[Rfam]
The record is an 87-nucleotide RNA from Tenuibacillus multivorans, which matches "c-di-GMP-I riboswitch aptamer" in Rfam. The literature on the family includes a 2008 paper in Science by Sudarsan et al., "Riboswitches in Eubacteria Sense the Second Messenger Cyclic Di-GMP". The base pairs follow the family's consensus structure, which is taken from published work.

RNA sequence: UCUCGACAAAGGCAAAACUGGUGAAAGCCAGCGACGCAAAGCUACAGGGGCUACAGUGUAAAAACACAAAGCCAGCCAGCUACCGAA
Number, nucleotide and partner (000 for none) at each position: 001u000002c000003u000004c000005g000006a000007c000008a000009a000010a000011g000012g037013c036014a000015a000016a000017a000018c031019u030020g029021g028022u027023g000024a000025a000026a000027g022028c021029c020030a019031g018032c000033g000034a000035c000036g013037c012038a000039a000040a081041g080042c079043u078044a000045c000046a000047g077048g076049g073050g072051c071052u000053a000054c000055a000056g067057u066058g065059u064060a000061a000062a000063a000064a059065c058066a057067c056068a000069a000070a000071g051072c050073c049074a000075g000076c048077c047078a043079g042080c041081u040082a000083c000084c000085g000086a000087a000